[Rfam]
RNA: mir-12 microRNA precursor family
RNA sequence: CCGCUGUGAGUAUUACAUCAGGUACUGGUUCAUAUUGAGUACCAGUAUCGAUGUCAUAUUCUCAGUGU
Numbered sequence: 001c002c003g004c005u006g007u008g009a010g011u012a013u014u015a016c017a018u019c020a021g022g023u024a025c026u027g028g029u030u031c032a033u034a035u036u037g038a039g040u041a042c043c044a045g046u047a048u049c050g051a052u053g054u055c056a057u058a059u060u061c062u063c064a065g066u067g068u
Stems, first nucleotide, its partner, number of pairs: 002067005009060004015054004021049009